Rfam assigns this 67-nucleotide sequence from Pipistrellus kuhlii to the family "mir-9256 microRNA precursor family". The family's consensus secondary structure was predicted with RNAalifold. Its family is annotated with RISC complex and miRNA-mediated post-transcriptional gene silencing in the Gene Ontology.

RNA sequence: GUAUACACUGAGUGGCCAGAUUAUCAUGAGUUCAGAAAUCAUAAUAUUCUGGCCACUCAGUGUAUGU
Numbered sequence: 001g002u003a004u005a006c007a008c009u010g011a012g013u014g015g016c017c018a019g020a021u022u023a024u025c026a027u028g029a030g031u032u033c034a035g036a037a038a039u040c041a042u043a044a045u046a047u048u049c050u051g052g053c054c055a056c057u058c059a060g061u062g063u064a065u066g067u
Base pairs, nucleotide, nucleotide: 004064005063006062007061008060009059010058011057012056013055014054015053016052017051019049020048022046023045024044026042027041028040